[Rfam]
RNA sequence: UUUAAAACUCGAAAUAUGGGCUAAACACUGAAUAGUGUCUGGGUUGUAGGACAGAUUCGGACUUCUCUGUUGUUGUUAUAAUUUGGACUCGAAAACAAUCUUUUAAAAUCUUGGACCCCACAUGAAAGUUUUAGGCCUAUGUCUUAUCUUUCCAUC
Numbered sequence: 001u002u003u004a005a006a007a008c009u010c011g012a013a014a015u016a017u018g019g020g021c022u023a024a025a026c027a028c029u030g031a032a033u034a035g036u037g038u039c040u041g042g043g044u045u046g047u048a049g050g051a052c053a054g055a056u057u058c059g060g061a062c063u064u065c066u067c068u069g070u071u072g073u074u075g076u077u078a079u080a081a082u083u084u085g086g087a088c089u090c091g092a093a094a095a096c097a098a099u100c101u102u103u104u105a106a107a108a109u110c111u112u113g114g115a116c117c118c119c120a121c122a123u124g125a126a127a128g129u130u131u132u133a134g135g136c137c138u139a140u141g142u143c144u145u146a147u148c149u150u151u152c153c154a155u156c
Stems, first nucleotide, its partner, number of pairs: 003154001006151002009146001011145002014142007021134005027129003035123003041119003045115001048112004055104001059100002063097001068092001072088003
Rfam assigns this 156-nucleotide RNA sequence from Populus tomentosa to the family "MIR2912 microRNA precursor family".
Taxonomically the source falls in Populus (Eukaryota, Pentapetalae, rosids, Salicaceae).
It scores 117 bits against the family's covariance model.
Gene Ontology terms of the family: miRNA-mediated post-transcriptional gene silencing and RISC complex.